This 138-nucleotide sequence from Leptospira interrogans belongs to the Rfam family "Group II catalytic intron D1-D4-4". The literature on the family includes a 2003 paper in Crit Rev Biochem Mol Biol by Lehmann and Schmidt, "Group II introns: structure and catalytic versatility of large natural ribozymes". Its family is annotated with Group II intron splicing in the Gene Ontology.
RNA sequence: UUGUCGGUGAAAGUCCGAUCCGGGUAAACGCCAGAGAGCCCGGUAGCUAUUCUCGGAUGUUUCUGGGCAACCGGAGAUGUCUAAGGGAGAAUAUUAGGCCAUUUGAAUGGAGGUGCGAAACAGCAGUCCGUAACAUAA
Numbered sequence: 001u002u003g004u005c006g007g008u009g010a011a012a013g014u015c016c017g018a019u020c021c022g023g024g025u026a027a028a029c030g031c032c033a034g035a036g037a038g039c040c041c042g043g044u045a046g047c048u049a050u051u052c053u054c055g056g057a058u059g060u061u062u063c064u065g066g067g068c069a070a071c072c073g074g075a076g077a078u079g080u081c082u083a084a085g086g087g088a089g090a091a092u093a094u095u096a097g098g099c100c101a102u103u104u105g106a107a108u109g110g111a112g113g114u115g116c117g118a119a120a121c122a123g124c125a126g127u128c129c130g131u132a133a134c135a136u137a138a
Stems, first nucleotide, its partner, number of pairs: 020043005050091005055082006064073001066071001099110004115131003